[Rfam]
Nucleotides: 231
Stems, first nucleotide, its partner, number of pairs: 007210004016076004079090004108143005167202005173196002178191004213229005
Number, partner (000 for none) and nucleotide at each position: 001000g002000g003000u004000c005000g006000u007210g008209g009208u010207g011000g012000g013000g014000c015000a016076c017075g018074g019073g020000g021000u022000c023000a024000a025000c026000c027000g028000a029000c030000c031000c032000a033000a034000g035000g036000a037000c038000g039000u040000u041000g042000c043000g044000g045000a046000a047000a048000g049000g050000a051000c052000u053000c054000a055000c056000c057000c058000c059000g060000a061000c062000c063000c064000g065000a066000c067000c068000c069000c070000a071000c072000c073019c074018u075017c076016g077000u078000g079090a080089c081088c082087c083000g084000a085000a086000c087082g088081g089080g090079u091000g092000a093000u094000g095000c096000g097000g098000u099000g100000c101000g102000a103000a104000c105000g106000g107000g108143c109142u110141g111140g112139a113000c114000a115000g116000g117000c118000g119000c120000g121000g122000c123000g124000g125000g126000a127000g128000c129000g130000g131000g132000c133000a134000u135000a136000g137000g138000c139112u140111c141110c142109g143108g144000g145000c146000a147000u148000a149000c150000a151000c152000c153000u154000c155000c156000a157000c158000a159000c160000a161000u162000g163000c164000g165000a166000c167202g168201g169200c170199c171198c172000c173196c174195g175000g176000c177000c178191g179190g180189g181188a182000c183000g184000g185000c186000a187000a188181u189180c190179c191178c192000g193000a194000u195174c196173g197000a198171g199170g200169g201168c202167c203000u204000g205000a206000c207010c208009a209008c210007c211000g212000a213229g214228g215227a216226a217225g218000a219000a220000a221000c222000g223000g224000a225217c226216u227215u228214c229213c230000c231000g

Rfam assigns this 231-nucleotide RNA from Streptomyces chumphonensis to the family "Streptomyces sRNA 4677". About the family: Located in the intergenic region between anti-sigma factor SCO4677 gene and a putative regulatory protein gene SCO4676. scr4677 expression requires the SCO4677 activity and scr4677 sRNA itself seem to affect the levels of the SCO4676-associated transcripts. The base pairs follow the family's consensus structure. By type it is a small RNA.